[Rfam]
RNA sequence: UAGCCAUCAGAGCCAGCGCGCUUCUAUGGCUG
Numbered sequence: 001u002a003g004c005c006a007u008c009a010g011a012g013c014c015a016g017c018g019c020g021c022u023u024c025u026a027u028g029g030c031u032g
Stems, first nucleotide, its partner, number of pairs: 001032007009025003012021002014018001